[Rfam]
A member of the RNA family "mir-574 microRNA precursor family" from Myotis myotis, 83 nucleotides long.

RNA sequence: AGCCCUACAGAGAGAGAAGCAGGGUCUGACCCCCAGCCUCCGUCACAGCUGUUGAUCAGCCAUUGCCUCUCUCUUUCUCUCCU
Dot-bracket structure: .........((((((((.((((.(.((((.(..((((..........))))..).)))).).)))).))))))))........
Gene Ontology terms of the family: miRNA-mediated post-transcriptional gene silencing and RISC complex.